[Rfam]
RNA: Plant small nucleolar RNA U3
Organism: Solanum commersonii
RNA sequence: ACGACCUUACCGCACCAUUGUAUCCUUGAUUUCUAAGGAGACAGGAAAUCAAGUCUGGUGGAUGACUUUUGUGGCCAUUAGACUAGAGUGUGAUUAAUAGCCUACAUGGUCCUUGGGUCAUGGUGCCAUAGAUGAUCGUUCUUAGCCUCAAUUAUGGGGUGGUAAGAUGGUCUAAUGGCUGUCUGACAGACU
Numbered sequence: 001a002c003g004a005c006c007u008u009a010c011c012g013c014a015c016c017a018u019u020g021u022a023u024c025c026u027u028g029a030u031u032u033c034u035a036a037g038g039a040g041a042c043a044g045g046a047a048a049u050c051a052a053g054u055c056u057g058g059u060g061g062a063u064g065a066c067u068u069u070u071g072u073g074g075c076c077a078u079u080a081g082a083c084u085a086g087a088g089u090g091u092g093a094u095u096a097a098u099a100g101c102c103u104a105c106a107u108g109g110u111c112c113u114u115g116g117g118u119c120a121u122g123g124u125g126c127c128a129u130a131g132a133u134g135a136u137c138g139u140u141c142u143u144a145g146c147c148u149c150a151a152u153u154a155u156g157g158g159g160u161g162g163u164a165a166g167a168u169g170g171u172c173u174a175a176u177g178g179c180u181g182u183c184u185g186a187c188a189g190a191c192u
Base pairs, nucleotide, nucleotide: 018044019043020042021041023039024038025037026036027035028034053191054190055189056188057187074179075178076177077176078175079174080173081172082171083170084169085168087140088139089138090137097129098128100126101125103123105122106121107120108119109118110117111116142165143164144163146161147159148158149157